[Rfam]
RNA: Burkholderia RNA 14
RNA sequence: GUAGGCGUGUUUACUGUUCAGCGCUCAUCCGUGCCGGUCACGAGUGAAUUGCCGGGACGUACCAGUGCGUUUUUGGUCGCGCAGGUGCGCUCACGGGUCGAUGGCAUCGUACUGCGUCGUGAAUUUACCGAAGGCGCCGAGGUCAAGGCCGGUCAGCGUUUGUACAAAAUCGA
Numbered sequence: 001g002u003a004g005g006c007g008u009g010u011u012u013a014c015u016g017u018u019c020a021g022c023g024c025u026c027a028u029c030c031g032u033g034c035c036g037g038u039c040a041c042g043a044g045u046g047a048a049u050u051g052c053c054g055g056g057a058c059g060u061a062c063c064a065g066u067g068c069g070u071u072u073u074u075g076g077u078c079g080c081g082c083a084g085g086u087g088c089g090c091u092c093a094c095g096g097g098u099c100g101a102u103g104g105c106a107u108c109g110u111a112c113u114g115c116g117u118c119g120u121g122a123a124u125u126u127a128c129c130g131a132a133g134g135c136g137c138c139g140a141g142g143u144c145a146a147g148g149c150c151g152g153u154c155a156g157c158g159u160u161u162g163u164a165c166a167a168a169a170u171c172g173a
Stems, first nucleotide, its partner, number of pairs: 004053004008047001011043002016038001018037002021034002055150002058147001061143003067137004072133001074131001079092001081090002094121002097118001099116002102114003106110001157172002159169003